[Rfam]
RNA sequence: AGCACUUGUCCUUGUCUUUGUUGAACUGAUGGACAAAGACUUAAAGACAGGUGCAAAAAUAAAUCUUUUGCAACCCAGAGCUAAUUGUUAAGUAUGAGUUUUGAUUCAGAUAAGAAGGAAUAUA
Numbered sequence: 001a002g003c004a005c006u007u008g009u010c011c012u013u014g015u016c017u018u019u020g021u022u023g024a025a026c027u028g029a030u031g032g033a034c035a036a037a038g039a040c041u042u043a044a045a046g047a048c049a050g051g052u053g054c055a056a057a058a059a060u061a062a063a064u065c066u067u068u069u070g071c072a073a074c075c076c077a078g079a080g081c082u083a084a085u086u087g088u089u090a091a092g093u094a095u096g097a098g099u100u101u102u103g104a105u106u107c108a109g110a111u112a113a114g115a116a117g118g119a120a121u122a123u124a
Stems, first nucleotide, its partner, number of pairs: 002054008014040008026031001063121002066115005076103007084095002
RNA: Small nucleolar RNA SNORA40